[Rfam]
A member of the RNA family "Bacterial large subunit ribosomal RNA" from Apibacter mensalis, 247 nucleotides of a longer RNA. NCBI's taxonomy places the organism under Bacteria, Pseudomonadati, Bacteroidota, Flavobacteriales, Apibacter. A search with the family's covariance model found it, with a score of 2691 bits. Gene Ontology terms of the family: ribosome and structural constituent of ribosome. The family's consensus secondary structure is taken from published work.
RNA sequence: UAGAAUUUUGCGUGGAGUUGACUCUAGUACGAGAGGACCGAGUUGAACAAACCUCUGGUGUAUCAGUUGUGCCGCCAGGUUCACCGCUGAGUAGCUAAGUUUGGAAGAGAUAAGCACUGAAAGCAUAUAAGUGCGAAACUCGCCACAAGAUAAGAAUUCGAUAUAGGGUCGUGGGAGAUUACCACGUUGAUAGGCUACAGGUGUAAAGGCAGUGAUGUCAUAGCCGAGUAGUACUAAUUACCCGGAG
Dot-bracket structure: ..(((((((..((((..(((((((...............))))))).(((((...(((....(((((((.(((....))).))..)))))....))).)))))...(((....(((((...........)))))....))).))))......)))))))......(((((((((.......)))))....((((((((.((..(...((((....)))))...))..))))).)))...))))....